[Rfam]
RNA sequence: CAUCGCGAUGCUCUUCACCAUGGAGAGAUCGUGAUGAGAAUACUUUCAAAGCGCCAGCUCAAGAAGUUGGUCCUGUACUCGCCGCAACACGUCGCGAGGCUGGAGAAGGCCGGAGCAUUCCCCAAGCGGGUCAACCUCGGGCCGAACCGGGUCGGAUGGGUCGAAAGCGAAGUGCAGGACUGGCUCCAAGAGCGGAUCACGCGCCGCGAGACCUGACGACACUCCCCUUGUGGGAGCGCGGGUGGCCGGGUCUGCAGAAUCC
Numbered sequence: 001c002a003u004c005g006c007g008a009u010g011c012u013c014u015u016c017a018c019c020a021u022g023g024a025g026a027g028a029u030c031g032u033g034a035u036g037a038g039a040a041u042a043c044u045u046u047c048a049a050a051g052c053g054c055c056a057g058c059u060c061a062a063g064a065a066g067u068u069g070g071u072c073c074u075g076u077a078c079u080c081g082c083c084g085c086a087a088c089a090c091g092u093c094g095c096g097a098g099g100c101u102g103g104a105g106a107a108g109g110c111c112g113g114a115g116c117a118u119u120c121c122c123c124a125a126g127c128g129g130g131u132c133a134a135c136c137u138c139g140g141g142c143c144g145a146a147c148c149g150g151g152u153c154g155g156a157u158g159g160g161u162c163g164a165a166a167g168c169g170a171a172g173u174g175c176a177g178g179a180c181u182g183g184c185u186c187c188a189a190g191a192g193c194g195g196a197u198c199a200c201g202c203g204c205c206g207c208g209a210g211a212c213c214u215g216a217c218g219a220c221a222c223u224c225c226c227c228u229u230g231u232g233g234g235a236g237c238g239c240g241g242g243u244g245g246c247c248g249g250g251u252c253u254g255c256a257g258a259a260u261c262c
Stems, first nucleotide, its partner, number of pairs: 001036009012026006056197001058195002063187001065185009076174004080169002085163001087161002090158004095154003100150003108143003112137002120130003203246005217240002222236005249261003
A member of the RNA family "Ruegeria trans44 sRNA" from Tabrizicola piscis, 262 nucleotides long. The source organism's lineage runs through Bacteria, Pseudomonadati, Rhodobacterales, Paracoccaceae and Tabrizicola.